[Rfam]
Rfam assigns this 75-nucleotide sequence from Alligator mississippiensis to the family "Mammalian CPEB3 ribozyme". Taxonomically the source falls in Alligator (Eukaryota, Opisthokonta, Deuterostomia, Archosauria). Its family is annotated with RNA nuclease activity in the Gene Ontology. The match comes from Rfam's covariance-model search (47 bits).

RNA sequence: CAAGAUUUUAAUGGCCAUAGCAGAAGCACUCACAUUAUGGCCCUGUCAGAUUUUAAUAAAUUUGUUAAUUCUAUU
Numbered sequence: 001c002a003a004g005a006u007u008u009u010a011a012u013g014g015c016c017a018u019a020g021c022a023g024a025a026g027c028a029c030u031c032a033c034a035u036u037a038u039g040g041c042c043c044u045g046u047c048a049g050a051u052u053u054u055a056a057u058a059a060a061u062u063u064g065u066u067a068a069u070u071c072u073a074u075u
Stems, first nucleotide, its partner, number of pairs: 013042004019075002022072004026038001028036001047064007